[Rfam]
Annotation:
The record is a 125-nucleotide RNA from Tateyamaria sp. ANG-S1, which matches "Glycine riboswitch aptamer" in Rfam. It scores 51 bits against the family's covariance model.
RNA sequence: AUGCGACGAUCUGGAGAGUGGUCGGACCUCAUGGCAUCCGGCCCACCGAAGGAGAAAGCGGCCCGUCCGGCACCUGAUCAGGUGCUUGCCGUCAAGCUCUCAGGUCUCGCGACAGAUGGGGAUGU
Numbered sequence: 001a002u003g004c005g006a007c008g009a010u011c012u013g014g015a016g017a018g019u020g021g022u023c024g025g026a027c028c029u030c031a032u033g034g035c036a037u038c039c040g041g042c043c044c045a046c047c048g049a050a051g052g053a054g055a056a057a058g059c060g061g062c063c064c065g066u067c068c069g070g071c072a073c074c075u076g077a078u079c080a081g082g083u084g085c086u087u088g089c090c091g092u093c094a095a096g097c098u099c100u101c102a103g104g105u106c107u108c109g110c111g112a113c114a115g116a117u118g119g120g121g122a123u124g125u
Stems, first nucleotide, its partner, number of pairs: 007119001009117005020043007045105003048101002052099003058092005